The record is a 140-nucleotide RNA sequence from Triticum urartu, which matches "Small nucleolar RNA Z247" in Rfam. The base pairs follow the family's consensus structure, which was predicted with PFOLD. Rfam links the family to the GO terms RNA processing and nucleolus. The match comes from Rfam's covariance-model search (49 bits). The literature on the family includes a 2003 paper in Nucleic Acids Res by Chen et al., "The high diversity of snoRNAs in plants: identification and comparative study of 120 snoRNA genes from Oryza sativa".
[Rfam]
RNA sequence: UGUGCUGACAAGGGGUGAGAUCGUCUCUCAAGUUCUGGCCGGACUCGACCUUGGCUACAAUCCAGUGGUGUCUGCCAUUGCUGCACGGGUGGAGCCCGUCACCGUCCAGGAGUUGUAUACGCAGCUGCUAAGCUUCGACU
Numbered sequence: 001u002g003u004g005c006u007g008a009c010a011a012g013g014g015g016u017g018a019g020a021u022c023g024u025c026u027c028u029c030a031a032g033u034u035c036u037g038g039c040c041g042g043a044c045u046c047g048a049c050c051u052u053g054g055c056u057a058c059a060a061u062c063c064a065g066u067g068g069u070g071u072c073u074g075c076c077a078u079u080g081c082u083g084c085a086c087g088g089g090u091g092g093a094g095c096c097c098g099u100c101a102c103c104g105u106c107c108a109g110g111a112g113u114u115g116u117a118u119a120c121g122c123a124g125c126u127g128c129u130a131a132g133c134u135u136c137g138a139c140u
Base pairs, nucleotide, nucleotide: 004139006137007136008135090108091107092106093105